[Rfam]
RNA sequence: GUUAUUCUUCAGGGCAGGGUGGAAGUCCCGACCGGCGGUAAAGUCCGCGAGCGCAAGCUGAACCUGUGUGAUUCAGGUACCGACAGUACAGUCUGGAUGAUAGAAGAGAGCC
Numbered sequence: 001g002u003u004a005u006u007c008u009u010c011a012g013g014g015c016a017g018g019g020u021g022g023a024a025g026u027c028c029c030g031a032c033c034g035g036c037g038g039u040a041a042a043g044u045c046c047g048c049g050a051g052c053g054c055a056a057g058c059u060g061a062a063c064c065u066g067u068g069u070g071a072u073u074c075a076g077g078u079a080c081c082g083a084c085a086g087u088a089c090a091g092u093c094u095g096g097a098u099g100a101u102a103g104a105a106g107a108g109a110g111c112c
Stems, first nucleotide, its partner, number of pairs: 003110001005108006017029003031092002033082002035048004043080002051058002062078005084095003